mir-344 microRNA precursor family: a 60-nucleotide RNA sequence from Mus musculus. Rfam 15.1 lists 339 matches to the family in 9 species. Gene Ontology terms of the family: RISC complex and miRNA-mediated post-transcriptional gene silencing. Lineage of the source: Eukaryota > Tetrapoda > Rodentia > Myomorpha > Mus.

RNA sequence: CAGGCUUCUGGCUAUAUUCCAGGACAUACCUGGUCCUGGGUAUAACCAAAGCCCGACUGU
Numbered sequence: 001c002a003g004g005c006u007u008c009u010g011g012c013u014a015u016a017u018u019c020c021a022g023g024a025c026a027u028a029c030c031u032g033g034u035c036c037u038g039g040g041u042a043u044a045a046c047c048a049a050a051g052c053c054c055g056a057c058u059g060u
Stems, first nucleotide, its partner, number of pairs: 001055001003053004009048003013044004019033005
The family's consensus secondary structure was predicted with RNAalifold.